[Rfam]
RNA: Y RNA
RNA sequence: GGCUGGUCCAAAUGCAGUGGUGUUUACAGCUAAUUGGCCACAACCAGUAACAAAUUUCUUUGUUCUUUCUCCACUCCCACUGCGUCACUUGACUAGCAAAA
Number, nucleotide and partner (000 for none) at each position: 001g000002g097003c096004u095005g094006g093007u092008c091009c000010a090011a089012a000013u000014g086015c000016a081017g080018u079019g078020g077021u000022g076023u000024u000025u000026a000027c000028a064029g063030c062031u000032a060033a059034u000035u000036g000037g000038c000039c000040a000041c000042a000043a000044c000045c000046a000047g000048u000049a000050a000051c000052a000053a000054a000055u000056u000057u000058c000059u033060u032061u000062g030063u029064u028065c000066u000067u000068u000069c000070u000071c000072c000073a000074c000075u000076c022077c020078c019079a018080c017081u016082g000083c000084g000085u000086c014087a000088c000089u011090u010091g008092a007093c006094u005095a004096g003097c002098a000099a000100a000101a000